[Rfam]
Nucleotides: 126
Base pairs, nucleotide, nucleotide: 001126002125003124004123005122006121007120008119009118010117011116012115013114014113015112016111017110019108020107021106022105023104024103025102027100028099029098030097031096032095033094034093035092036091037090038089039088041085042084043083044082045081046080047079
Number, partner (000 for none) and nucleotide at each position: 001126g002125g003124a004123a005122u006121a007120u008119a009118a010117g011116a012115a013114a014113c015112c016111g017110u018000c019108u020107c021106u022105u023104a024103a025102c026000g027100u028099u029098u030097a031096a032095c033094u034093a035092a036091a037090a038089a039088a040000a041085c042084u043083a044082a045081g046080a047079a048000u049000c050000g051000g052000u053000u054000c055000u056000u057000a058000a059000a060000u061000a062000u063000c064000u065000u066000a067000u068000u069000u070000a071000a072000c073000a074000a075000u076000c077000a078000g079047u080046u081045u082044u083043u084042a085041g086000u087000u088039u089038u090037u091036u092035u093034u094033a095032g096031u097030u098029a099028a100027a101000a102025g103024u104023u105022a106021a107020g108019a109000u110017a111016c112015g113014g114013u115012u116011u117010c118009u119008u120007a121006u122005a123004u124003u125002c126001c
A member of the RNA family "MIR9563 microRNA precursor family" from Brassica napus, 126 nucleotides long. The family has 2 seed sequences and 5,832 matches in Rfam 15.1. A search with the family's covariance model found it, with a score of 108 bits.